[Rfam]
RNA: SAM riboswitch aptamer (S box leader)
Organism: Bacillus smithii
Nucleotides: 110
Stems, first nucleotide, its partner, number of pairs: 001110008013041001015040003021031003025082004042074004047070002049066004078102001083099006
Number, partner (000 for none) and nucleotide at each position: 001110c002109u003108c004107u005106u006105a007104u008103c009000a010000a011000g012000a013041g014000a015040g016039g017038u018000g019000g020000a021031g022030g023029g024000a025082u026081g027080u028079g029023c030022c031021c032000a033000a034000u035000g036000a037000a038017a039016c040015c041013c042074g043073g044072c045071a046000a047070c048069c049066g050065u051064c052063a053000a054000u055000c056000g057000u058000u059000c060000a061000g062000u063052u064051g065050a066049c067000a068000u069048g070047g071045u072044g073043c074042c075000a076000a077000u078102u079028c080027a081026c082025a083099c084098a085097a086096a087095g088094c089000a090000g091000u092000u093000u094088g095087c096086u097085u098084u099083g100000a101000g102078a103008g104007a105006u106005g107004a108003g109002a110001g